Rfam assigns this 180-nucleotide RNA sequence from Glaesserella parasuis to the family "Actinobacillus sRNA 11". Taxonomically the source falls in Glaesserella parasuis (Bacteria, Pseudomonadota, Pasteurellales, Pasteurellaceae). Arrc stands for Actinobacillus pleuropneumoniae Regulatory RNA Candidate. TargetRNA2 was used for the predictions. radA gene target may be involved in stress resistance. Rfam classes the family as a small RNA.

[Rfam]
RNA sequence: AAAUUGUCGAAUAAAUAGACUUCCCAAAUGGCGAAAAAAUGCGUAUUAUACGCGUCCCUGAGUUAGUAGGCGAUAAUGAUGCUGAACACUGAAUAAAGGUUGUGAAGUACGGUUUUACACCGUACUUUUUAUUUGGAUAUCGUUUAGGUUAAAUUUGUACUAAAAAUAAUCAAUGGAUAA
Numbered sequence: 001a002a003a004u005u006g007u008c009g010a011a012u013a014a015a016u017a018g019a020c021u022u023c024c025c026a027a028a029u030g031g032c033g034a035a036a037a038a039a040u041g042c043g044u045a046u047u048a049u050a051c052g053c054g055u056c057c058c059u060g061a062g063u064u065a066g067u068a069g070g071c072g073a074u075a076a077u078g079a080u081g082c083u084g085a086a087c088a089c090u091g092a093a094u095a096a097a098g099g100u101u102g103u104g105a106a107g108u109a110c111g112g113u114u115u116u117a118c119a120c121c122g123u124a125c126u127u128u129u130u131a132u133u134u135g136g137a138u139a140u141c142g143u144u145u146a147g148g149u150u151a152a153a154u155u156u157g158u159a160c161u162a163a164a165a166a167u168a169a170u171c172a173a174u175g176g177a178u179a180a
Stems, first nucleotide, its partner, number of pairs: 005139004010134002025098001027094001029092001030090002033087001039055007064084004101131002104128010148170004154164004